[Rfam]
RNA sequence: CUAUGUUUGGUAGAGGUGUAUGGAAUGAGAAAUGGGAAGGGCGUUUUCGGUUGACUUCAUGAACUUCCCCUUUUUCAUUCCAUACAUCAUCUAUCUAACAUUGU
Numbered sequence: 001c002u003a004u005g006u007u008u009g010g011u012a013g014a015g016g017u018g019u020a021u022g023g024a025a026u027g028a029g030a031a032a033u034g035g036g037a038a039g040g041g042c043g044u045u046u047u048c049g050g051u052u053g054a055c056u057u058c059a060u061g062a063a064c065u066u067c068c069c070c071u072u073u074u075u076c077a078u079u080c081c082a083u084a085c086a087u088c089a090u091c092u093a094u095c096u097a098a099c100a101u102u103g104u
Stems, first nucleotide, its partner, number of pairs: 005099003009095001011093004015088018034070003037066002049056002
Overview
A member of the RNA family "MIR1507 microRNA precursor family" from Arachis hypogaea, 104 nucleotides long. The source organism's lineage runs through Eukaryota, Spermatophyta, Fabales, Dalbergieae and Arachis.